[Rfam]
Nucleotides: 074
Base pairs, nucleotide, nucleotide: 008031009030010029011028012027013025014024035067036066037065038064039063040062041061042060
Number, partner (000 for none) and nucleotide at each position: 001000u002000g003000u004000c005000u006000c007000c008031u009030c010029c011028a012027c013025c014024c015000u016000c017000c018000u019000c020000c021000u022000c023000u024014g025013g026000u027012g028011u029010g030009g031008a032000u033000u034000u035067a036066a037065c038064c039063c040062g041061a042060g043000c044000g045000g046000c047000g048000c049000c050000c051000c052000c053000c054000g055000u056000g057000c058000c059000c060042c061041u062040c063039g064038g065037g066036u067035u068000u069000u070000u071000c072000u073000u074000u